[Rfam]
RNA sequence: UCAUUUCUAUAUUUGACAUCAAAUGAGAAAACAACAAACAUGGUGGUGGUAUUUUACUAACGAAACGUUCGUGAAAUAGUCCAUUGUGUUAAUUGAAAUACUAAAAGGCUUGUC
Numbered sequence: 001u002c003a004u005u006u007c008u009a010u011a012u013u014u015g016a017c018a019u020c021a022a023a024u025g026a027g028a029a030a031a032c033a034a035c036a037a038a039c040a041u042g043g044u045g046g047u048g049g050u051a052u053u054u055u056a057c058u059a060a061c062g063a064a065a066c067g068u069u070c071g072u073g074a075a076a077u078a079g080u081c082c083a084u085u086g087u088g089u090u091a092a093u094u095g096a097a098a099u100a101c102u103a104a105a106a107g108g109c110u111u112g113u114c
Base pairs, nucleotide, nucleotide: 032095033094034093037090038089039088040087041086042085043084045082046081051077052076054074055073056072057071059069060068061067
RNA: Bacteroidete tryptophan peptide leader RNA